[Rfam]
RNA: Molybdenum/Tungsten riboswitch aptamer (Moco RNA motif)
RNA sequence: UGGAUUUACAGUCUUUGAGCGUGCCUUCUCUAAAGGAUUUUCCCAAGAGAGCACGCCUGAAAGGUGAUACCUUUCACAGGGGCGUUUGGAAACGGAUUGCCCUGCCAUUUGCAAAAAAGAGUGUAGGUGACAAAU
Numbered sequence: 001u002g003g004a005u006u007u008a009c010a011g012u013c014u015u016u017g018a019g020c021g022u023g024c025c026u027u028c029u030c031u032a033a034a035g036g037a038u039u040u041u042c043c044c045a046a047g048a049g050a051g052c053a054c055g056c057c058u059g060a061a062a063g064g065u066g067a068u069a070c071c072u073u074u075c076a077c078a079g080g081g082g083c084g085u086u087u088g089g090a091a092a093c094g095g096a097u098u099g100c101c102c103u104g105c106c107a108u109u110u111g112c113a114a115a116a117a118a119g120a121g122u123g124u125a126g127g128u129g130a131c132a133a134a135u
Stems, first nucleotide, its partner, number of pairs: 004128001006126001012120005019056006028049003035043003058076007079103006085096004104112002
Dot-bracket structure: ...(.(.....(((((..((((((...(((....(((...)))...))).)))))).(((((((.....)))))))..((((((((((....)))).))))))((.....))...))))).....).).......